[Rfam]
The record is a 75-nucleotide RNA sequence from Erinaceus europaeus, which matches "mir-202 microRNA precursor family" in Rfam. The literature on the family includes a 2005 paper in Genes Dev by Chen et al., "The developmental miRNA profiles of zebrafish as determined by small RNA cloning". The match comes from Rfam's covariance-model search (67 bits). The family has 23 seed sequences and 673 matches in Rfam 15.1. Pairs were carried over by alignment from the consensus structure, which was predicted with RNAalifold.
Nucleotides: 075
Stems, first nucleotide, its partner, number of pairs: 011065009021055003025051008
Number, partner (000 for none) and nucleotide at each position: 001000c002000c003000g004000u005000u006000c007000c008000c009000u010000u011065u012064u013063c014062c015061u016060a017059u018058g019057c020000a021055u022054a023053u024000a025051c026050u027049u028048c029047u030046u031045u032044g033000a034000g035000g036000g037000u038000c039000c040000g041000a042000c043000c044032u045031g046030a047029a048028g049027a050026g051025g052000u053023g054022u055021g056000g057019g058018c059017a060016u061015a062014g063013g064012a065011g066000c067000a068000g069000g070000g071000c072000g073000c074000g075000g